Source information:
The record is a 46-nucleotide sequence from Labeo rohita, which matches "Histone 3' UTR stem-loop" in Rfam. The family's consensus secondary structure is taken from published work. Its family is annotated with mRNA 3'-end processing by stem-loop binding and cleavage in the Gene Ontology. About the family: The mRNAs of metazoan histone genes lack a poly-A tail. 3' end processing occurs at a site between a highly conserved stem-loop (modelled by this family) and a purine rich region around 20 nts downstream (the histone downstream element, or HDE). The family's RNA type in Rfam is cis-regulatory element. A search with the family's covariance model found it, with a score of 35 bits. The family has 50 seed sequences and 44,596 matches in Rfam 15.1.
RNA sequence: AAAACGGCUCUUUUAAGAGCCACCCACUUGUUACGAUUAAAGAGCA
Numbered sequence: 001a002a003a004a005c006g007g008c009u010c011u012u013u014u015a016a017g018a019g020c021c022a023c024c025c026a027c028u029u030g031u032u033a034c035g036a037u038u039a040a041a042g043a044g045c046a
Stems, first nucleotide, its partner, number of pairs: 006021006